RNA sequence: GAGAAAAAUCGGUAGGUGAGGUUACCACAGGGAUUUGGGAGACCUAAGAUUGCUGCCGCAGAUUUGUGGAGACACAAUGCGCUGGUUAGCAGGCUAUGUCGUGGAAGGCAUAACCUAAUGCAAUUUAUAUGCCCUGUGAUACUAAAGCUUGUACGUGGCACUCAGA
Numbered sequence: 001g002a003g004a005a006a007a008a009u010c011g012g013u014a015g016g017u018g019a020g021g022u023u024a025c026c027a028c029a030g031g032g033a034u035u036u037g038g039g040a041g042a043c044c045u046a047a048g049a050u051u052g053c054u055g056c057c058g059c060a061g062a063u064u065u066g067u068g069g070a071g072a073c074a075c076a077a078u079g080c081g082c083u084g085g086u087u088a089g090c091a092g093g094c095u096a097u098g099u100c101g102u103g104g105a106a107g108g109c110a111u112a113a114c115c116u117a118a119u120g121c122a123a124u125u126u127a128u129a130u131g132c133c134c135u136g137u138g139a140u141a142c143u144a145a146a147g148c149u150u151g152u153a154c155g156u157g158g159c160a161c162u163c164a165g166a
Stems, first nucleotide, its partner, number of pairs: 005162001009158002011154001013106001015149003020143003026138007049124005056084001058082002065076004092115002095112001098109003
A member of the RNA family "M-box riboswitch aptamer (ykoK leader)" from Blautia hansenii, 166 nucleotides long. Taxonomically the source falls in Blautia hansenii (Bacteria, Bacillati, Clostridia, Lachnospiraceae). M-box riboswitch, also know as ykoK leader is described as a metaloregulatory RNA that sense divalent metals and function as a genetic control element of genes related to divalent metal transport in bacteria. It was first reported upstream of the B.subtilis ykoK gene and genes with related functions in other bacteria. It is one of the family's seed sequences. The base pairs follow the family's consensus structure. The family has 159 seed sequences and 1,095 matches in Rfam 15.1.